[Rfam]
RNA: mir-1247 microRNA precursor family
Organism: Pan troglodytes
RNA sequence: GCUGGGCGCACCCGUCCCGUUCGUCCCCGGACGUUGCUCUCUACCCCGGGAACGUCGAGACUGGAGCGCCCGAA
Numbered sequence: 001g002c003u004g005g006g007c008g009c010a011c012c013c014g015u016c017c018c019g020u021u022c023g024u025c026c027c028c029g030g031a032c033g034u035u036g037c038u039c040u041c042u043a044c045c046c047c048g049g050g051a052a053c054g055u056c057g058a059g060a061c062u063g064g065a066g067c068g069c070c071c072g073a074a
Stems, first nucleotide, its partner, number of pairs: 003072007011064002014061003018057002022054003026050005033044002